[Rfam]
RNA sequence: GAAAAAGUAGGGGCCUGUUGCCUUCUUGUGGGAAAUCAUUUUUUUCAUUGUUAUUGGGUGAACCUCUUGAGUAGAUGAUUGAAGGUUCAGUAAAUGAUGGGACAUUA
Numbered sequence: 001g002a003a004a005a006a007g008u009a010g011g012g013g014c015c016u017g018u019u020g021c022c023u024u025c026u027u028g029u030g031g032g033a034a035a036u037c038a039u040u041u042u043u044u045u046c047a048u049u050g051u052u053a054u055u056g057g058g059u060g061a062a063c064c065u066c067u068u069g070a071g072u073a074g075a076u077g078a079u080u081g082a083a084g085g086u087u088c089a090g091u092a093a094a095u096g097a098u099g100g101g102a103c104a105u106u107a
Stems, first nucleotide, its partner, number of pairs: 005027003011016001044101009059089007

The family of this 107-nucleotide sequence from Camellia sinensis is "Small nucleolar RNA snoR74". A reference for the family is Marker et al. (2002), "Experimental RNomics: identification of 140 candidates for small non-messenger RNAs in the plant Arabidopsis thaliana", Curr Biol. Pairs were carried over by alignment from the consensus structure, which was predicted with WAR. Rfam 15.1 lists 1,404 matches to the family in 223 species.